[Rfam]
This 508-nucleotide RNA from Kibdelosporangium aridum belongs to the Rfam family "Saccharopolyspora sRNA 350". The literature on the family includes a 2013 paper in PLoS One by Liu et al., "Prediction and characterization of small non-coding RNAs related to secondary metabolites in Saccharopolyspora erythraea". It scores 206 bits against the family's covariance model. The family has 2 seed sequences and 1,170 matches in Rfam 15.1.
RNA sequence: UUGGCGGUGAACUCCCAGAUGCUUUGAUCUUGGAUGAGCGCCUGGUCGCCGAAAUAGUCGCCGUCGACCAUCGUGCCGAGCACGGUUUGGUCACCGUACUCACCGGUGCCGAUCUUGUUCACCUUGCCGUGCGCGACCACGUAGACGUAGUCGGCCUCGUGACCGAAUUCGGCGAUCACGGCGCCGGGCUCGUACUCCUGCUGCUCGAACCGGCCUGCCAAGGCGUUGAGCGCGUCCUCGUCCUCGAAAGUGCGCAGCAGAGCCAUUUCCACCAGGUCCGGGCCGACAACCUGGACCCUGGACCCGGUGUUGGAGACGGCGAUCCGGCCGUCACCGACGGUGUAGCUCAGCCUUCGGUUGACCCGGUACACGCCACCUUGGGCCUGCACCCACGGCAGGACCCGCAGCAGCCAGCGCGAGGUGAUGCUCUGCAUCUGCGGGACGGAUUUGGUGGUCGUCGCCAAAUUCCGCGCGGCCGCGGUGGCCAGGCUCUGCUGUUGCUGGCCGU
Numbered sequence: 001u002u003g004g005c006g007g008u009g010a011a012c013u014c015c016c017a018g019a020u021g022c023u024u025u026g027a028u029c030u031u032g033g034a035u036g037a038g039c040g041c042c043u044g045g046u047c048g049c050c051g052a053a054a055u056a057g058u059c060g061c062c063g064u065c066g067a068c069c070a071u072c073g074u075g076c077c078g079a080g081c082a083c084g085g086u087u088u089g090g091u092c093a094c095c096g097u098a099c100u101c102a103c104c105g106g107u108g109c110c111g112a113u114c115u116u117g118u119u120c121a122c123c124u125u126g127c128c129g130u131g132c133g134c135g136a137c138c139a140c141g142u143a144g145a146c147g148u149a150g151u152c153g154g155c156c157u158c159g160u161g162a163c164c165g166a167a168u169u170c171g172g173c174g175a176u177c178a179c180g181g182c183g184c185c186g187g188g189c190u191c192g193u194a195c196u197c198c199u200g201c202u203g204c205u206c207g208a209a210c211c212g213g214c215c216u217g218c219c220a221a222g223g224c225g226u227u228g229a230g231c232g233c234g235u236c237c238u239c240g241u242c243c244u245c246g247a248a249a250g251u252g253c254g255c256a257g258c259a260g261a262g263c264c265a266u267u268u269c270c271a272c273c274a275g276g277u278c279c280g281g282g283c284c285g286a287c288a289a290c291c292u293g294g295a296c297c298c299u300g301g302a303c304c305c306g307g308u309g310u311u312g313g314a315g316a317c318g319g320c321g322a323u324c325c326g327g328c329c330g331u332c333a334c335c336g337a338c339g340g341u342g343u344a345g346c347u348c349a350g351c352c353u354u355c356g357g358u359u360g361a362c363c364c365g366g367u368a369c370a371c372g373c374c375a376c377c378u379u380g381g382g383c384c385u386g387c388a389c390c391c392a393c394g395g396c397a398g399g400a401c402c403c404g405c406a407g408c409a410g411c412c413a414g415c416g417c418g419a420g421g422u423g424a425u426g427c428u429c430u431g432c433a434u435c436u437g438c439g440g441g442a443c444g445g446a447u448u449u450g451g452u453g454g455u456c457g458u459c460g461c462c463a464a465a466u467u468c469c470g471c472g473c474g475g476c477c478g479c480g481g482u483g484g485c486c487a488g489g490c491u492c493u494g495c496u497g498u499u500g501c502u503g504g505c506c507g508u
Stems, first nucleotide, its partner, number of pairs: 006390004011385001014382003018328001021325001024322003028316002035313001037311006045305001049301003055232001058229003062225003065111002068108001075103001078101003082097005118221002122217001127212001129210002131206001133204003139199001141197001143196002150191001154189004159184002234296004240290002244286002250283002253280002257277002260272001262270001329342004356374002391431002394428004400422002403418003407415001437476002440473001443470004447465006477507002480502003484499001486497003